[Rfam]
RNA sequence: GCGUGGGACAUCCCUCCCCAACGAGGGACUCACUAUCUGGAAGGGUAGCCAUC
Numbered sequence: 001g002c003g004u005g006g007g008a009c010a011u012c013c014c015u016c017c018c019c020a021a022c023g024a025g026g027g028a029c030u031c032a033c034u035a036u037c038u039g040g041a042a043g044g045g046u047a048g049c050c051a052u053c
Stems, first nucleotide, its partner, number of pairs: 011028006033048006
RNA: serC leader